RNA sequence: GAGCACUUGAUACUAACCAAGCCAUCUGUGUCCAAGGUCUUGUGCCAAGGCCUAAGGUACACAUUGUGAUUGCUGGGUCUGAAAAGUGCAACACUAAAGCAAGCCCUGAAGUGUUUAAGCUCAGUGUGUGAAGGAUGACACUGGGUUAUAGCUCAGAGGCACAGAA
Numbered sequence: 001g002a003g004c005a006c007u008u009g010a011u012a013c014u015a016a017c018c019a020a021g022c023c024a025u026c027u028g029u030g031u032c033c034a035a036g037g038u039c040u041u042g043u044g045c046c047a048a049g050g051c052c053u054a055a056g057g058u059a060c061a062c063a064u065u066g067u068g069a070u071u072g073c074u075g076g077g078u079c080u081g082a083a084a085a086g087u088g089c090a091a092c093a094c095u096a097a098a099g100c101a102a103g104c105c106c107u108g109a110a111g112u113g114u115u116u117a118a119g120c121u122c123a124g125u126g127u128g129u130g131a132a133g134g135a136u137g138a139c140a141c142u143g144g145g146u147u148a149u150a151g152c153u154c155a156g157a158g159g160c161a162c163a164g165a166a
Base pairs, nucleotide, nucleotide: 003089004088005087006086007085008084016078017077018076020074021073022072024070025069026068027063028062029061030060031059033056035053036052037051039050040049041048103160104159105158124139125138129134141156142155143154144153145152146151

This 166-nucleotide RNA sequence from Semnornis frantzii belongs to the Rfam family "Small Cajal body specific RNA 1". On this family, see Darzacq et al., EMBO J 2002: "Cajal body-specific small nuclear RNAs: a novel class of 2'-O-methylation and pseudouridylation guide RNAs". From the family's description: scaRNAs are a specific class of small nuclear RNAs which localise to the Cajal bodies and guide the modification of RNA polymerase II transcribed spliceosomal RNAs U1, U2, U4, U5 and U12. ACA35 belong to the H/ACA box class of guide RNAs as it has the predicted hairpin-hinge-hairpin-tail structure, conserved H/ACA-box motifs and is found associated with GAR1. It is predicted to guide pseudouridylation of the U2 spliceosomal snRNA at residue U89. Pairs were carried over by alignment from the consensus structure, which was predicted with RNAalifold. The family has 29 seed sequences and 715 matches in Rfam 15.1. The family's RNA type in Rfam is small Cajal body RNA. NCBI's taxonomy places the organism under Eukaryota, Tetrapoda, Archosauria, Telluraves, Semnornis. A search with the family's covariance model found it, with a score of 126 bits.